Shown here is a 91-nucleotide RNA from Papaver somniferum, a member of the family "MIR2275 microRNA precursor family". Gene Ontology terms of the family: miRNA-mediated post-transcriptional gene silencing and RISC complex. Lineage of the source: Eukaryota > Tracheophyta > Magnoliopsida > Papaveraceae > Papaver.
RNA sequence: UGUCUGGAAGUGAGAGUUGGAUGAGACUAAAUUGAUUAUUUACCUUUGUUUACAAUCAACUUAGUUUCCUCCAAUAUCUCACAUCCAGUGC
Numbered sequence: 001u002g003u004c005u006g007g008a009a010g011u012g013a014g015a016g017u018u019g020g021a022u023g024a025g026a027c028u029a030a031a032u033u034g035a036u037u038a039u040u041u042a043c044c045u046u047u048g049u050u051u052a053c054a055a056u057c058a059a060c061u062u063a064g065u066u067u068c069c070u071c072c073a074a075u076a077u078c079u080c081a082c083a084u085c086c087a088g089u090g091c
Stems, first nucleotide, its partner, number of pairs: 004088005011081004016075006023068008032059002